[Rfam]
RNA: mir-7 microRNA precursor family
RNA sequence: GUGCCUGUUGCUGUGUGGAAGACUAGUGAUUUUGUUGUUUUUAGUUAGAUGAAGCGACAACAAAUCGCGGUCUGCCACAUGGCGCAGGCUC
Numbered sequence: 001g002u003g004c005c006u007g008u009u010g011c012u013g014u015g016u017g018g019a020a021g022a023c024u025a026g027u028g029a030u031u032u033u034g035u036u037g038u039u040u041u042u043a044g045u046u047a048g049a050u051g052a053a054g055c056g057a058c059a060a061c062a063a064a065u066c067g068c069g070g071u072c073u074g075c076c077a078c079a080u081g082g083c084g085c086a087g088g089c090u091c
Stems, first nucleotide, its partner, number of pairs: 003089004009084001011082008020073005026068007034061006